[Rfam]
Nucleotides: 086
Base pairs, nucleotide, nucleotide: 012037013036017032018031019030020029021028022027040080041079042078043077045076046075047074048071049070050069055065056064057063
Number, partner (000 for none) and nucleotide at each position: 001000a002000u003000u004000u005000u006000c007000c008000a009000u010000g011000g012037g013036c014000a015000a016000a017032c018031g019030u020029g021028c022027u023000g024000a025000a026000a027022g028021g029020u030019g031018c032017g033000g034000a035000c036013g037012c038000a039000a040080a041079g042078c043077c044000a045076c046075g047074g048071g049070u050069c051000u052000a053000a054000g055065g056064g057063c058000a059000u060000u061000u062000c063057g064056c065055c066000u067000a068000u069050g070049a071048u072000a073000g074047c075046c076045g077043g078042g079041u080040u081000g082000c083000a084000a085000c086000g
The record is an 86-nucleotide RNA sequence from Paenalicyclobacillus mengziensis, which matches "c-di-GMP-I riboswitch aptamer" in Rfam. The match comes from Rfam's covariance-model search (74 bits).